[Rfam]
RNA sequence: CCCGAUGCUUUCAUAUAGAUUCCGCGGGCUCAGGCUUUCGGAGAACGGUGAUGGAUUCCAUGGUCCCAUUGCCGUUUACAUA
Numbered sequence: 001c002c003c004g005a006u007g008c009u010u011u012c013a014u015a016u017a018g019a020u021u022c023c024g025c026g027g028g029c030u031c032a033g034g035c036u037u038u039c040g041g042a043g044a045a046c047g048g049u050g051a052u053g054g055a056u057u058c059c060a061u062g063g064u065c066c067c068a069u070u071g072c073c074g075u076u077u078a079c080a081u082a
Base pairs, nucleotide, nucleotide: 021042022041023040024039044076045075046074047073048072049071050070051069052068053067054066

A member of the RNA family "COG2827 RNA" from Clostridium sp. CAG:81, 82 nucleotides long. Rfam classes the family as a small RNA. Lineage of the source: Bacteria > Bacillota > Clostridia > Eubacteriales > Clostridium. Rfam's curators put it in the seed alignment.